[Rfam]
RNA sequence: UGUGUUUGUUAGCUCUGCUAUGAGAUGGGAUCCGAAGCCCUCCGAGUGAUAAUACAAGCUCUCUCAUCCAACUCCUAUUCCGACACGUCCUCGUCAAGCAGAGUGGUAACAUGUGCUACCACAAAUCCAAGCUUGGGUACAUGGGUUUGACCUAACCCCUUGGGCGGAUGAUGGAAUAUGGCGAACCAGGAGGGG
Numbered sequence: 001u002g003u004g005u006u007u008g009u010u011a012g013c014u015c016u017g018c019u020a021u022g023a024g025a026u027g028g029g030a031u032c033c034g035a036a037g038c039c040c041u042c043c044g045a046g047u048g049a050u051a052a053u054a055c056a057a058g059c060u061c062u063c064u065c066a067u068c069c070a071a072c073u074c075c076u077a078u079u080c081c082g083a084c085a086c087g088u089c090c091u092c093g094u095c096a097a098g099c100a101g102a103g104u105g106g107u108a109a110c111a112u113g114u115g116c117u118a119c120c121a122c123a124a125a126u127c128c129a130a131g132c133u134u135g136g137g138u139a140c141a142u143g144g145g146u147u148u149g150a151c152c153u154a155a156c157c158c159c160u161u162g163g164g165c166g167g168a169u170g171a172u173g174g175a176a177u178a179u180g181g182c183g184a185a186c187c188a189g190g191a192g193g194g195g
Stems, first nucleotide, its partner, number of pairs: 011104001014101001024068007032058001073195004078191002081189001087095001089106002110180005117173002120170001125169004133155006157164002
drz-agam-2-2 ribozyme: a 195-nucleotide RNA sequence from Anopheles gambiae.
A search with the family's covariance model found it, with a score of 131 bits.
For this family Rfam cites "Widespread occurrence of self-cleaving ribozymes" (Webb et al., Science, 2009).